[Rfam]
RNA: c-di-AMP riboswitch aptamer (ydaO/yuaA leader)
RNA sequence: CCGUACCUCCUGCACAGCCAGGACGGGGGUGGGGGACCCACCUCGGUGCCCGGCCGGUCCCGCCGGGCGCCUCGGGGUGAAGCCGUGUGCGCACGGCCGGGGCACCGAUCGCCCCGAACCCGACAGCUCACCCCACAGGCGGCGGAUCGGGAGUAC
Dot-bracket structure: ((...(((.................)))((((((....(..................................)(((.....((((......))))..((((.........))))...))).........)))))).)).................